[Rfam]
Shown here is a 331-nucleotide sequence from Rissa tridactyla, a member of the family "Nuclear RNase P". About the family: Ribonuclease P (RNase P) is a ubiquitous endoribonuclease, found in archaea, bacteria and eukarya as well as chloroplasts and mitochondria. Its best characterised activity is the generation of mature 5'-ends of tRNAs by cleaving the 5'-leader elements of precursor-tRNAs. Cellular RNase Ps are ribonucleoproteins. RNA from bacterial RNase Ps retains its catalytic activity in the absence of the protein subunit, i.e. it is a ribozyme. Taxonomically the source falls in Rissa (Eukaryota, Saurischia, Neognathae, Laridae). The family's RNA type in Rfam is ribozyme. A search with the family's covariance model found it, with a score of 166 bits.
RNA sequence: UCCGGGGGAAGCUCACCGCCGAGGCCACGCACGGGGUGUGCGUCACCCACGCCCCGCCUCGGGGAAGGUCUGAGGGAAGGGCCGCUCGCGGCUCUAGCAGAGCCCCGCCCGCGAGGGGGGCGGGUGAGCCACCAGCAAGGAGGGGCGCCGCGAUGUCUCUCAAUGGGCCGGUCUCACGGGCAGGAGAAGCCGACGCAGGUUCCGUGGGGGGAACCCCGGCGGAUGCUCGUGGCCCCGCGGUGCUUUGAGACAGACUCACGGCCGGCGCUUGAGUCCAAUGGGUGAGGUGGGGCACCGCCCUACAACCCAAUUCAGACUACUCUCCCCCGGA
Numbered sequence: 001u002c003c004g005g006g007g008g009a010a011g012c013u014c015a016c017c018g019c020c021g022a023g024g025c026c027a028c029g030c031a032c033g034g035g036g037u038g039u040g041c042g043u044c045a046c047c048c049a050c051g052c053c054c055c056g057c058c059u060c061g062g063g064g065a066a067g068g069u070c071u072g073a074g075g076g077a078a079g080g081g082c083c084g085c086u087c088g089c090g091g092c093u094c095u096a097g098c099a100g101a102g103c104c105c106c107g108c109c110c111g112c113g114a115g116g117g118g119g120g121c122g123g124g125u126g127a128g129c130c131a132c133c134a135g136c137a138a139g140g141a142g143g144g145g146c147g148c149c150g151c152g153a154u155g156u157c158u159c160u161c162a163a164u165g166g167g168c169c170g171g172u173c174u175c176a177c178g179g180g181c182a183g184g185a186g187a188a189g190c191c192g193a194c195g196c197a198g199g200u201u202c203c204g205u206g207g208g209g210g211g212a213a214c215c216c217c218g219g220c221g222g223a224u225g226c227u228c229g230u231g232g233c234c235c236c237g238c239g240g241u242g243c244u245u246u247g248a249g250a251c252a253g254a255c256u257c258a259c260g261g262c263c264g265g266c267g268c269u270u271g272a273g274u275c276c277a278a279u280g281g282g283u284g285a286g287g288u289g290g291g292g293c294a295c296c297g298c299c300c301u302a303c304a305a306c307c308c309a310a311u312u313c314a315g316a317c318u319a320c321u322c323u324c325c326c327c328c329g330g331a
Base pairs, nucleotide, nucleotide: 001331002330003329004328007325008324009323012286013285014284015283016282017281020061021060022059023058024057034048035047036046037045038044070315071314072313073312074311080263081262082261083260090104091103092102093101094100105123106122107121108120109119110118124259125258126257127256128255130253144244145243146242147241148240149239150238151237152236287303288302289301290300291299292298293297